[Rfam]
RNA sequence: AUUUUAGUAUGAGUAUGUCCUAUGAAAUAUUUAGGACAUACUUAUAUUAAAA
Number, nucleotide and partner (000 for none) at each position: 001a000002u000003u000004u000005u000006a048007g047008u046009a045010u044011g043012a042013g000014u040015a039016u038017g000018u036019c035020c034021u033022a031023u000024g000025a000026a000027a000028u000029a000030u000031u022032u000033a021034g020035g019036a018037c000038a016039u015040a014041c000042u012043u011044a010045u009046a008047u007048u006049a000050a000051a000052a000
The record is a 52-nucleotide RNA sequence from Microcebus murinus, which matches "mir-1302 microRNA precursor family" in Rfam. The family's consensus secondary structure was predicted with WAR. On this family, see Morin et al., Genome Res 2008: "Application of massively parallel sequencing to microRNA profiling and discovery in human embryonic stem cells". Its family is annotated with miRNA-mediated post-transcriptional gene silencing and RISC complex in the Gene Ontology. The match comes from Rfam's covariance-model search (68 bits).